[Rfam]
RNA sequence: AAGUGUUGUCAUUAAACGUCUGACUGUGAUAACUCUGUAGGCAAUCGUUCGCAAUAUGAAUUUUAGAAACCGAAAAAUGAAAGCCCUUCUCCUCGUAGUUAGCCUAGUCGUGAUUAGCGUGGUGGUGAUUAUUAUCCCACCGUGCGGGGCUGCACUUGGACGAAGAAAGGCUUAUUAAACAAGCCUGAACCUGAAAAGAAACCCCGCACCGAAAGGUCCGGGGUUUUUUUUUGGUCAGGAAUUUCAGAGAACAGAGAAGCGGGGUCGGAAAAUGAGCAACAGCAUAAUAUUCUGCACUUGUCGCAAAAA
Numbered sequence: 001a002a003g004u005g006u007u008g009u010c011a012u013u014a015a016a017c018g019u020c021u022g023a024c025u026g027u028g029a030u031a032a033c034u035c036u037g038u039a040g041g042c043a044a045u046c047g048u049u050c051g052c053a054a055u056a057u058g059a060a061u062u063u064u065a066g067a068a069a070c071c072g073a074a075a076a077a078u079g080a081a082a083g084c085c086c087u088u089c090u091c092c093u094c095g096u097a098g099u100u101a102g103c104c105u106a107g108u109c110g111u112g113a114u115u116a117g118c119g120u121g122g123u124g125g126u127g128a129u130u131a132u133u134a135u136c137c138c139a140c141c142g143u144g145c146g147g148g149g150c151u152g153c154a155c156u157u158g159g160a161c162g163a164a165g166a167a168a169g170g171c172u173u174a175u176u177a178a179a180c181a182a183g184c185c186u187g188a189a190c191c192u193g194a195a196a197a198g199a200a201a202c203c204c205c206g207c208a209c210c211g212a213a214a215g216g217u218c219c220g221g222g223g224u225u226u227u228u229u230u231u232u233g234g235u236c237a238g239g240a241a242u243u244u245c246a247g248a249g250a251a252c253a254g255a256g257a258a259g260c261g262g263g264g265u266c267g268g269a270a271a272a273u274g275a276g277c278a279a280c281a282g283c284a285u286a287a288u289a290u291u292c293u294g295c296a297c298u299u300g301u302c303g304c305a306a307a308a309a
Stems, first nucleotide, its partner, number of pairs: 005033008016021001038073001040071002045065001047063001049059002085263003089256003093250002097243004102236001104234004109119003121141005127136003142161002145158004163192001169186002172183002195229006202222003206218001208217003266294005272285003
RNA: Soft rot Enterobacteriaceae Rev 39 5'UTR
Organism: Rahnella aquatilis